c-di-AMP riboswitch aptamer (ydaO/yuaA leader): a 154-nucleotide sequence from Actinomadura rubrisoli. The organism belongs to Actinomadura, within Bacteria. It scores 83 bits against the family's covariance model.

RNA sequence: CGCGGUGCGAGGCCGAGUCCGUUCCGGUCCGCGUGACCGGACGGAGCCGGGGACCCAGGUUCCAGGGGUGAAUCGGCGCGUCCCGAGACGUGCCGUAGGGCUACUUCCAGGCCCGAAUCCGUCAGCUAACCCGGUAGGCGUCAUGGGAGAACAA
Numbered sequence: 001c002g003c004g005g006u007g008c009g010a011g012g013c014c015g016a017g018u019c020c021g022u023u024c025c026g027g028u029c030c031g032c033g034u035g036a037c038c039g040g041a042c043g044g045a046g047c048c049g050g051g052g053a054c055c056c057a058g059g060u061u062c063c064a065g066g067g068g069u070g071a072a073u074c075g076g077c078g079c080g081u082c083c084c085g086a087g088a089c090g091u092g093c094c095g096u097a098g099g100g101c102u103a104c105u106u107c108c109a110g111g112c113c114c115g116a117a118u119c120c121g122u123c124a125g126c127u128a129a130c131c132c133g134g135u136a137g138g139c140g141u142c143a144u145g146g147g148a149g150a151a152c153a154a
Stems, first nucleotide, its partner, number of pairs: 012139003018045007046135006056065001066120003074095007098114004